Description
This 79-nucleotide RNA from Clupea harengus belongs to the Rfam family "mir-19 microRNA precursor family". The family's consensus secondary structure was predicted with RNAalifold. The match comes from Rfam's covariance-model search (72 bits).
RNA sequence: GACUCUGGUUAGUUUUGCUGGUUUGCAUUCCGCUGGUUUAACUGUUGAUGUGCAAAUCCAUGCAAAACUGAUCAUGGCA
Dot-bracket structure: ..((.(((((((((((((.(((((((((....(.............)..))))))).))..))))))))))))).))..